Overview
DnaX ribosomal frameshifting element: a 65-nucleotide RNA sequence from Rahnella aquatilis. For this family Rfam cites "Structural probing and mutagenic analysis of the stem-loop required for Escherichia coli dnaX ribosomal frameshifting: programmed efficiency of 50%" (Larsen et al., J Mol Biol, 1997).
Nucleotides: 065
Stems, first nucleotide, its partner, number of pairs: 032061006039054002
Number, partner (000 for none) and nucleotide at each position: 001000g002000g003000c004000a005000g006000g007000g008000g009000a010000g011000u012000a013000c014000c015000a016000c017000c018000c019000c020000a021000a022000a023000a024000a025000a026000a027000g028000c029000u030000g031000a032061g033060c034059c035058g036057g037056c038000a039054g040053c041000g042000c043000c044000a045000g046000g047000a048000a049000a050000a051000g052000c053040g054039c055000g056037g057036c058035c059034g060033g061032c062000a063000a064000c065000c
The family's RNA type in Rfam is frameshift element. Its family is annotated with translational frameshifting in the Gene Ontology. A search with the family's covariance model found it, with a score of 41 bits.